[Rfam]
RNA sequence: AGCUUUCUGAAUCCGUGCCGAGUUUUUGUCAGACACCGACUCACCGGGGGUGACGAGAUUCCAAAAGUAAGUGGAGUG
Numbered sequence: 001a002g003c004u005u006u007c008u009g010a011a012u013c014c015g016u017g018c019c020g021a022g023u024u025u026u027u028g029u030c031a032g033a034c035a036c037c038g039a040c041u042c043a044c045c046g047g048g049g050g051u052g053a054c055g056a057g058a059u060u061c062c063a064a065a066a067g068u069a070a071g072u073g074g075a076g077u078g
Stems, first nucleotide, its partner, number of pairs: 002077005008071001011068002016063002020061003024058007